[Rfam]
RNA sequence: GCGGUUCCGGUUCACGCCCCGUGGCCUCGUCAGGUGACGACGGCGAAGCGGUGAAGGCGACCCGGCGGCC
Number, nucleotide and partner (000 for none) at each position: 001g000002c000003g070004g069005u068006u000007c065008c064009g063010g062011u000012u000013c000014a000015c059016g058017c057018c056019c000020c053021g052022u000023g000024g000025c000026c000027u000028c000029g000030u000031c000032a000033g000034g000035u000036g000037a000038c000039g000040a000041c000042g000043g000044c000045g000046a000047a000048g000049c000050g000051g000052u021053g020054a000055a000056g018057g017058c016059g015060a000061c000062c010063c009064g008065g007066c000067g000068g005069c004070c003

A member of the RNA family "L31-Actinobacteria ribosomal protein leader" from Sphaerisporangium rubeum, 70 nucleotides long.
NCBI's taxonomy places the organism under Bacteria, Bacillati, Streptosporangiales, Streptosporangiaceae, Sphaerisporangium.
It scores 45 bits against the family's covariance model.